[Rfam]
RNA sequence: GAAUCGGGAGACCACCAUUGGGCCGGUGGUCAGGCAUUGAUCCGAACUCCUGUCUCGCAGGGACGUGUGCGCUGGUGCCCCGACGGCGCGCGCU
Numbered sequence: 001g002a003a004u005c006g007g008g009a010g011a012c013c014a015c016c017a018u019u020g021g022g023c024c025g026g027u028g029g030u031c032a033g034g035c036a037u038u039g040a041u042c043c044g045a046a047c048u049c050c051u052g053u054c055u056c057g058c059a060g061g062g063a064c065g066u067g068u069g070c071g072c073u074g075g076u077g078c079c080c081c082g083a084c085g086g087c088g089c090g091c092g093c094u
Base pairs, nucleotide, nucleotide: 001043003041004040005039010031011030012029013028014027015026016025065093066092067091068090070088071087072086073085074084
RNA: Rhodo-rpoB RNA
Organism: Pseudooceanicola algae